[Rfam]
RNA: Bacteroidetes FopS (family of paralogous sRNAs)
RNA sequence: GUGUUUUUCAUAGUAUUAGAUUUAAGGUUAACAAGGUUGGGAUACAGCGGUAUCCCUUUUUUUGUA
Numbered sequence: 001g002u003g004u005u006u007u008u009c010a011u012a013g014u015a016u017u018a019g020a021u022u023u024a025a026g027g028u029u030a031a032c033a034a035g036g037u038u039g040g041g042a043u044a045c046a047g048c049g050g051u052a053u054c055c056c057u058u059u060u061u062u063u064g065u066a
Stems, first nucleotide, its partner, number of pairs: 039056007